[Rfam]
RNA: TPP riboswitch aptamer (THI element)
Organism: Streptomonospora alba
Nucleotides: 114
Base pairs, nucleotide, nucleotide: 006103009100010099011063012062013061014060017034018033019032020031021030041057042056043055044054045053046052047051069094070093071092075088076087077086078085
Number, partner (000 for none) and nucleotide at each position: 001000g002000a003000g004000a005000u006103c007000a008000c009100c010099c011063g012062c013061g014060g015000g016000a017034g018033c019032c020031g021030g022000g023000g024000c025000g026000g027000g028000a029000c030021c031020c032019g033018g034017c035000u036000g037000a038000g039000a040000g041057g042056g043055a044054g045053g046052c047051u048000g049000a050000c051047g052046g053045c054044c055043u056042c057041c058000g059000a060014c061013c062012g063011c064000a065000u066000g067000a068000a069094c070093c071092u072000g073000a074000u075088c076087c077086g078085g079000g080000u081000c082000a083000u084000a085078c086077c087076g088075g089000c090000g091000a092071a093070g094069g095000a096000a097000g098000u099010g100009g101000c102000a103006g104000c105000a106000g107000g108000g109000a110000c111000g112000u113000g114000u